[Rfam]
RNA sequence: UCCAGUGGUAGUCAGCUGUCCAGAGCAAUACUAUGCCUGUGAUGGUGUUACACUGCUGGCAGAUAAAGAUCAGUCAUUUCUUCUGGCUGCUGUUGUCACCGUUCUGGAGACAGCUGGUGCCAGCAAGAGGUGACAUUGUGCUUCCCUGAGAGCGCACUAAAGGUUCUCUUCUCCUCUUUAGUGCUAGUCUGGAAGCCUACACA
Numbered sequence: 001u002c003c004a005g006u007g008g009u010a011g012u013c014a015g016c017u018g019u020c021c022a023g024a025g026c027a028a029u030a031c032u033a034u035g036c037c038u039g040u041g042a043u044g045g046u047g048u049u050a051c052a053c054u055g056c057u058g059g060c061a062g063a064u065a066a067a068g069a070u071c072a073g074u075c076a077u078u079u080c081u082u083c084u085g086g087c088u089g090c091u092g093u094u095g096u097c098a099c100c101g102u103u104c105u106g107g108a109g110a111c112a113g114c115u116g117g118u119g120c121c122a123g124c125a126a127g128a129g130g131u132g133a134c135a136u137u138g139u140g141c142u143u144c145c146c147u148g149a150g151a152g153c154g155c156a157c158u159a160a161a162g163g164u165u166c167u168c169u170u171c172u173c174c175u176c177u178u179u180a181g182u183g184c185u186a187g188u189c190u191g192g193a194a195g196c197c198u199a200c201a202c203a
Stems, first nucleotide, its partner, number of pairs: 002059008011051002015046006021039003073131003083123005090116001092114001094112004099107002138198001140196006154184003158180006
Shown here is a 203-nucleotide sequence from Irena cyanogastra, a member of the family "Small nucleolar RNA SNORA74". The base pairs follow the family's consensus structure, which was predicted with PFOLD. Rfam 15.1 lists 1,348 matches to the family in 628 species. The match comes from Rfam's covariance-model search (95 bits).